Shown here is a 179-nucleotide RNA from Ruegeria marina, a member of the family "Ruegeria cis52 sRNA". The source organism's lineage runs through Bacteria, Pseudomonadati, Alphaproteobacteria, Rhodobacterales and Ruegeria. By type it is a small RNA. Its family is annotated with regulation of gene expression in the Gene Ontology. It scores 144 bits against the family's covariance model. On this family, see Rivers et al., Front Microbiol 2016: "Experimental Identification of Small Non-Coding RNAs in the Model Marine Bacterium Ruegeria pomeroyi DSS-3". The base pairs follow the family's consensus structure, which was predicted with RNAfold.
RNA sequence: UUCUCAGGGCGUGUUUGACCACGAUGUUCGGAAAACUCACCCCCUUGAGCCGGGCGGUGCGGAUAUACUGGGCGGUCAUCACUUCGGUCAUAGAUGCGCGGGUCAUCCGGGCGAUAUAGCCCAUCCCAUAGAGCGCGAUGGUCAGGACCGGCAGGAAGAAAUUCUCGAAUGUCGGAUCA
Numbered sequence: 001u002u003c004u005c006a007g008g009g010c011g012u013g014u015u016u017g018a019c020c021a022c023g024a025u026g027u028u029c030g031g032a033a034a035a036c037u038c039a040c041c042c043c044c045u046u047g048a049g050c051c052g053g054g055c056g057g058u059g060c061g062g063a064u065a066u067a068c069u070g071g072g073c074g075g076u077c078a079u080c081a082c083u084u085c086g087g088u089c090a091u092a093g094a095u096g097c098g099c100g101g102g103u104c105a106u107c108c109g110g111g112c113g114a115u116a117u118a119g120c121c122c123a124u125c126c127c128a129u130a131g132a133g134c135g136c137g138a139u140g141g142u143c144a145g146g147a148c149c150g151g152c153a154g155g156a157a158g159a160a161a162u163u164c165u166c167g168a169a170u171g172u173c174g175g176a177u178c179a
Stems, first nucleotide, its partner, number of pairs: 004141003009136004014131002016128002021124001028123001030121002038113001040111003046105003050101003054097001055075001057073002060070003082096001084094002146178002148175006154165004